Rfam assigns this 141-nucleotide sequence from Aotus nancymaae to the family "U4atac minor spliceosomal RNA".
[Rfam]
RNA sequence: ACCAUCCUUUUCUUGGGGUUGUGCUACUGUCCAAUGAGCACACAGUGAGGGCAGAACUGCUAACACCUACCAAAAAAAAAUAAAUAAAUAAACAAGGCCAGGUGCAGUGGCUAAUGCCUGUAAUGCCAGCAAUUUGGGAGG
Numbered sequence: 001a002c003c004a005u006c007c008u009u010u011u012c013u014u015g016g017g018g019u020u021g022u023g024c025u026a027c028u029g030u031c032c033a034a035u036g037a038g039c040a041c042a043c044a045g046u047g048a049g050g051g052c053a054g055a056a057c058u059g060c061u062a063a064c065a066c067c068u069a070c071c072a073a074a075a076a077a078a079a080a081u082a083a084a085u086a087a088a089u090a091a092a093c094a095a096g097g098c099c100a101g102g103u104g105c106a107g108u109g110g111c112u113a114a115u116g117c118c119u120g121u122a123a124u125g126c127c128a129g130c131a132a133u134u135u136g137g138g139a140g141g
Base pairs, nucleotide, nucleotide: 006018007017008016009015021060022059023058027054028053029052030051031050032049038046039045099129101127102126103125106121109118110117111116
Lineage of the source: Eukaryota > Teleostomi > Dipnotetrapodomorpha > Primates > Aotus.
About the family: U4atac is an essential component of the minor U12-type spliceosome complex which is required for removal of the rarer class of eukaryotic introns (AT-AC, U12-type).
A search with the family's covariance model found it, with a score of 61 bits.
The base pairs follow the family's consensus structure, which is taken from published work.
It is annotated as a spliceosomal small nuclear RNA.